[Rfam]
RNA: Alpha operon ribosome binding site
Organism: Arsenophonus endosymbiont of Bemisia tabaci
RNA sequence: AAAAUGUAUAACUGUUUGAGUAUCCUGAAAGCGGGCUUUUCAGCACAGUUAUGCAGUAUUUAACUUUAGGAGUGGAUAAGUGGCCCGUAUAGCAGGCAUUAACAUUCCUGAU
Numbered sequence: 001a002a003a004a005u006g007u008a009u010a011a012c013u014g015u016u017u018g019a020g021u022a023u024c025c026u027g028a029a030a031g032c033g034g035g036c037u038u039u040u041c042a043g044c045a046c047a048g049u050u051a052u053g054c055a056g057u058a059u060u061u062a063a064c065u066u067u068a069g070g071a072g073u074g075g076a077u078a079a080g081u082g083g084c085c086c087g088u089a090u091a092g093c094a095g096g097c098a099u100u101a102a103c104a105u106u107c108c109u110g111a112u
Base pairs, nucleotide, nucleotide: 005055006054007053008052009051010050011049012048013047024096025095026094032087033086034085035084040111041110042109